[Rfam]
RNA: MIR439 microRNA precursor family
Nucleotides: 093
Stems, first nucleotide, its partner, number of pairs: 004090006011083003017077003021073004026068003030062002033059010
Number, partner (000 for none) and nucleotide at each position: 001000u002000a003000u004090c005089c006088u007087g008086u009085c010000a011083a012082a013081c014000u015000g016000a017077c018076g019075c020000a021073g022072u023071u024070c025000a026068a027067c028066a029000u030062g031061u032000u033059c034058c035057u036056g037055u038054c039053g040052a041051a042050u043000u044000g045000u046000g047000g048000u049000u050042g051041u052040u053039c054038g055037a056036u057035a058034g059033g060000u061031a062030c063000c064000c065000c066028u067027g068026u069000c070024g071023a072022a073021c074000c075019g076018c077017g078000g079000u080000u081013g082012u083011u084000c085009g086008a087007c088006a089005g090004g091000g092000u093000g